Description: The record is a 132-nucleotide RNA from Plesiomonas shigelloides, which matches "Manganese Mn2+ riboswitch aptamer (yybP-ykoY)" in Rfam. The organism belongs to Plesiomonas shigelloides, within Bacteria. Rfam 15.1 lists 1,126 matches to the family in 1,062 species. A reference for the family is Argaman et al. (2001), "Novel small RNA-encoding genes in the intergenic regions of Escherichia coli", Curr Biol.
RNA sequence: UCUUCCGUCAUGGGGGAGUAGUCUUUUGCAACAUACGUUGCCGGUACGCCAGUACCUGUUCGGUGUAGCAAAGCUGUCGUCAACAAACUUGCCCGAAGGGCAUGGCGGCAGCGGCCUCGCAUCUUUGAGGUU
Numbered sequence: 001u002c003u004u005c006c007g008u009c010a011u012g013g014g015g016g017a018g019u020a021g022u023c024u025u026u027u028g029c030a031a032c033a034u035a036c037g038u039u040g041c042c043g044g045u046a047c048g049c050c051a052g053u054a055c056c057u058g059u060u061c062g063g064u065g066u067a068g069c070a071a072a073g074c075u076g077u078c079g080u081c082a083a084c085a086a087a088c089u090u091g092c093c094c095g096a097a098g099g100g101c102a103u104g105g106c107g108g109c110a111g112c113g114g115c116c117u118c119g120c121a122u123c124u125u126u127g128a129g130g131u132u
Base pairs, nucleotide, nucleotide: 026071027070028069073112074111075110076109077108078107079106080105081104082103090102091101092100093099094098